[Rfam]
RNA sequence: CAGAAGUUCAUAUACAAAUGGAUAAGAUUUUGUCGUAGGUAUACGAAUCGUUGAAACAAAGUAGCAAUACCCAAUGUCUGCUUUGCAAGACAUGGGGUAUUGCUA
Numbered sequence: 001c002a003g004a005a006g007u008u009c010a011u012a013u014a015c016a017a018a019u020g021g022a023u024a025a026g027a028u029u030u031u032g033u034c035g036u037a038g039g040u041a042u043a044c045g046a047a048u049c050g051u052u053g054a055a056a057c058a059a060a061g062u063a064g065c066a067a068u069a070c071c072c073a074a075u076g077u078c079u080g081c082u083u084u085g086c087a088a089g090a091c092a093u094g095g096g097g098u099a100u101u102g103c104u105a
Stems, first nucleotide, its partner, number of pairs: 007022005062105009072095001074093001076091004
RNA: Plastid-psbA-1 3UTR RNA